Shown here is a 441-nucleotide RNA from Synechococcales cyanobacterium C42_A2020_086, a member of the family "Bacterial RNase P class A".
The base pairs follow the family's consensus structure, which is taken from published work.
A reference for the family is Frank and Pace (1998), "Ribonuclease P: unity and diversity in a tRNA processing ribozyme", Annu Rev Biochem.
By type it is a ribozyme.

RNA sequence: GAGGAGGCGCAGGCAGUUGCAGACUUCGGUCUGAGGAAAGUCCGGGCUUCCGAAAGACCAGACUUGCUGGGUAACGCCCAGUGCGGGCAACCGCGAGGAAAGUGCCACAGAAACAUACCGCCUGCUGAGGAGGUCGGGAAUUGGGGCAACCCACACUGCCCGCUCUCCCCAGUUCAGGUAAGGGUGCAAAGGUGCGGUAAGAGCGCACCAGCAGCGUCGAGAGGCGCUGGCUCGGUAAACCCCGGUCGGAAGCAAGGUCGAAGGAGCAAUGGUUGGUCUUUUUCCAGCUCCGAGCAGGACGGAGGAAACUCCACCCCUGCGGAAUCCGCUAGAGGUGUCUGGUAACAGGCAUCCCAGAUAGAUAACUGCCCUUCUGGGGGUGACCGCUUUGGCUGCUGCCUCCAGAAGAACAGAACCCGGCUUAUGUCCGCCUCUUCCCUU
Numbered sequence: 001g002a003g004g005a006g007g008c009g010c011a012g013g014c015a016g017u018u019g020c021a022g023a024c025u026u027c028g029g030u031c032u033g034a035g036g037a038a039a040g041u042c043c044g045g046g047c048u049u050c051c052g053a054a055a056g057a058c059c060a061g062a063c064u065u066g067c068u069g070g071g072u073a074a075c076g077c078c079c080a081g082u083g084c085g086g087g088c089a090a091c092c093g094c095g096a097g098g099a100a101a102g103u104g105c106c107a108c109a110g111a112a113a114c115a116u117a118c119c120g121c122c123u124g125c126u127g128a129g130g131a132g133g134u135c136g137g138g139a140a141u142u143g144g145g146g147c148a149a150c151c152c153a154c155a156c157u158g159c160c161c162g163c164u165c166u167c168c169c170c171a172g173u174u175c176a177g178g179u180a181a182g183g184g185u186g187c188a189a190a191g192g193u194g195c196g197g198u199a200a201g202a203g204c205g206c207a208c209c210a211g212c213a214g215c216g217u218c219g220a221g222a223g224g225c226g227c228u229g230g231c232u233c234g235g236u237a238a239a240c241c242c243c244g245g246u247c248g249g250a251a252g253c254a255a256g257g258u259c260g261a262a263g264g265a266g267c268a269a270u271g272g273u274u275g276g277u278c279u280u281u282u283u284c285c286a287g288c289u290c291c292g293a294g295c296a297g298g299a300c301g302g303a304g305g306a307a308a309c310u311c312c313a314c315c316c317c318u319g320c321g322g323a324a325u326c327c328g329c330u331a332g333a334g335g336u337g338u339c340u341g342g343u344a345a346c347a348g349g350c351a352u353c354c355c356a357g358a359u360a361g362a363u364a365a366c367u368g369c370c371c372u373u374c375u376g377g378g379g380g381u382g383a384c385c386g387c388u389u390u391g392g393c394u395g396c397u398g399c400c401u402c403c404a405g406a407a408g409a410a411c412a413g414a415a416c417c418c419g420g421c422u423u424a425u426g427u428c429c430g431c432c433u434c435u436u437c438c439c440u441u
Stems, first nucleotide, its partner, number of pairs: 001437009011425001012370007020033005038423003042420005047252004061247003065244002067081005082096001083094004097242002102240002104236003118183002120179005125172003191209006211231001212229007256327002266320003271315001301312004334353008